[Rfam]
RNA sequence: GGAGGAAUCGACCCUCCGAUAUCGGCGUUCAGGUGCUGGUAUCAAACCACUUCAAGCGGCUACUGUAAAAGGUGGUGGUCGUGAGCGUUGAAGAAAGUCAGGG
Numbered sequence: 001g002g003a004g005g006a007a008u009c010g011a012c013c014c015u016c017c018g019a020u021a022u023c024g025g026c027g028u029u030c031a032g033g034u035g036c037u038g039g040u041a042u043c044a045a046a047c048c049a050c051u052u053c054a055a056g057c058g059g060c061u062a063c064u065g066u067a068a069a070a071g072g073u074g075g076u077g078g079u080c081g082u083g084a085g086c087g088u089u090g091a092a093g094a095a096a097g098u099c100a101g102g103g
Stems, first nucleotide, its partner, number of pairs: 001017005018043006025036004050093006056082002059079003063075004
Dot-bracket structure: (((((.......)))))((((((.((((....)))).))))))......((((((((.(((.((((.....)))).))).)).....))))))..........
This 103-nucleotide RNA sequence from Nitrosomonas sp. Nm58 belongs to the Rfam family "Group II catalytic intron D1-D4-2". Rfam links the family to the GO term Group II intron splicing. The source organism's lineage runs through Bacteria, Betaproteobacteria, Nitrosomonadales, Nitrosomonadaceae and Nitrosomonas. The literature on the family includes a 2001 paper in Trends Genet by Bonen and Vogel, "The ins and outs of group II introns". The pairing is the family consensus, mapped onto this sequence.